RNA: Small nucleolar RNA snoR2/U65
RNA sequence: GGUCCGAGCCACGUUGAUGGUAGUCAUAAGUUGGCAAUGACCAUCAAUGCUAUAUGAUUGGACCUAUAAAAACACCAUGGUUUCACAUUCAUGAUAGGAAUCUGUUUACUGAUUUAUAAAUCCAAUUCAUUUACAGAGCCGUUUUGUGUGAUUACAUUU
Number, nucleotide and partner (000 for none) at each position: 001g000002g063003u062004c061005c060006g059007a058008g055009c000010c000011a000012c049013g048014u047015u046016g045017a044018u000019g042020g041021u040022a000023g035024u034025c033026a000027u000028a000029a000030g000031u000032u000033g025034g024035c023036a000037a000038u000039g000040a021041c020042c019043a000044u017045c016046a015047a014048u013049g012050c000051u000052a000053u000054a000055u008056g000057a000058u007059u006060g005061g004062a003063c002064c000065u000066a000067u000068a000069a000070a000071a000072a000073c000074a000075c000076c000077a000078u000079g000080g000081u000082u000083u151084c150085a149086c148087a147088u000089u000090c000091a000092u000093g000094a000095u000096a000097g140098g139099a000100a000101u000102c136103u135104g134105u000106u000107u000108a130109c000110u129111g128112a000113u000114u000115u000116a000117u000118a000119a000120a000121u000122c000123c000124a000125a000126u000127u000128c111129a110130u108131u000132u000133a000134c104135a103136g102137a000138g000139c098140c097141g000142u000143u000144u000145u000146g000147u087148g086149u085150g084151a083152u000153u000154a000155c000156a000157u000158u000159u000